Source information: The record is a 284-nucleotide RNA sequence from Tepidibacillus sp. HK-1, which matches "T-box leader" in Rfam. A search with the family's covariance model found it, with a score of 104 bits. Rfam classes the family as a cis-regulatory leader. About the family: Uncharged tRNA acts as the effector for transcription antitermination of genes in the T-box leader family.

[Rfam]
RNA sequence: GAAAUCGCGAUGAUUGUAGUUAGUAGGUGGUAAUGACUGCUUUUUAGAGAGCCGGUGGUUGGUGAAAAUCGGUACAUUAUUAUCAAACCGAAUUACCCUACAAGAGCUGAAUAGACGAAGCUGAAAAAUCGUCUUUUCCGGGAAUCCCGUUAUGCAAUGAAGUGAAGAAGACAGACCCCACAAAAGUAAUUAGAAUAGCUUUUAAGGAGGGCAUCACAUUUGUGGGCAUUAAUUUUCCUGUUUUUUUAAGUAGGGUGGUAACGCGUCUAAACCACGUCCCUAGC
Numbered sequence: 001g002a003a004a005u006c007g008c009g010a011u012g013a014u015u016g017u018a019g020u021u022a023g024u025a026g027g028u029g030g031u032a033a034u035g036a037c038u039g040c041u042u043u044u045u046a047g048a049g050a051g052c053c054g055g056u057g058g059u060u061g062g063u064g065a066a067a068a069u070c071g072g073u074a075c076a077u078u079a080u081u082a083u084c085a086a087a088c089c090g091a092a093u094u095a096c097c098c099u100a101c102a103a104g105a106g107c108u109g110a111a112u113a114g115a116c117g118a119a120g121c122u123g124a125a126a127a128a129u130c131g132u133c134u135u136u137u138c139c140g141g142g143a144a145u146c147c148c149g150u151u152a153u154g155c156a157a158u159g160a161a162g163u164g165a166a167g168a169a170g171a172c173a174g175a176c177c178c179c180a181c182a183a184a185a186g187u188a189a190u191u192a193g194a195a196u197a198g199c200u201u202u203u204a205a206g207g208a209g210g211g212c213a214u215c216a217c218a219u220u221u222g223u224g225g226g227c228a229u230u231a232a233u234u235u236u237c238c239u240g241u242u243u244u245u246u247u248a249a250g251u252a253g254g255g256u257g258g259u260a261a262c263g264c265g266u267c268u269a270a271a272c273c274a275c276g277u278c279c280c281u282a283g284c
Stems, first nucleotide, its partner, number of pairs: 007107002015102004026089002028085004042074001051073006110137002113134004139149003165247010252281004263277004